[Rfam]
RNA: c-di-GMP-I riboswitch aptamer
RNA sequence: AAUAACAAAUGGCAAAGUAGGAGAAAUUCUAUGACGCAAAGCUAUAGGGCCUGUAAAAUGGUAGCCAGUUACAUUA
Numbered sequence: 001a002a003u004a005a006c007a008a009a010u011g012g013c014a015a016a017g018u019a020g021g022a023g024a025a026a027u028u029c030u031a032u033g034a035c036g037c038a039a040a041g042c043u044a045u046a047g048g049g050c051c052u053g054u055a056a057a058a059u060g061g062u063a064g065c066c067a068g069u070u071a072c073a074u075u076a
Base pairs, nucleotide, nucleotide: 012037013036017032018031019030020029021028022027040070041069042068043067047066048065049062050061051060